Metazoan signal recognition particle RNA: a 299-nucleotide RNA from Stegodyphus mimosarum. For this family Rfam cites "Prediction of signal recognition particle RNA genes" (Regalia et al., Nucleic Acids Res, 2002). Rfam classes the family as a non-coding RNA gene. Taxonomically the source falls in Stegodyphus (Eukaryota, Metazoa, Arthropoda, Eresidae). Its Rfam clan is "SRP clan". Rfam's curators write: The signal recognition particle (SRP) is a universally conserved ribonucleoprotein. The match comes from Rfam's covariance-model search (240 bits).
RNA sequence: ACCGGGAACUGUGGCGCGUUCCUGUAAUCCAGCUGCUUUGGAGGUCGAGGUUGUUGGACGGCUUGAGGUUGGGAGUUCUGUCCUCCAGGCGCUUAUGUUGAUUCGGCGUCCGCGUUACGAACCCUGUCGAUAUGGUAGAACUGGGGGAGCCCGGAUCUACCAGGUCGUCUAACGAGGAGCGAACAGGCUAAGGGCGGAAACGCAGCAGGCAAAAGUUCCCGCAGGCUUCGGUAGUGGGAUAGCGCUGAUGAAUAGGUGCCAGUGGAUAGCCCAUCCAAGACGGUCGGACUCGGCCUUUU
Dot-bracket structure: (((((((((........))))))....(((.........)))))).(((((((.....(((((...((.((((....((((((.(..(((((((((.(....(((((((((.(((((((((.(((((((((.(((((((.(((((....))))).))))))).))))(.....).(((((......(((....(((....)))....)))....))))).))))).)))).)))))))...))))))).).))))))))).).)))))))))).)).....)))))....)))))))..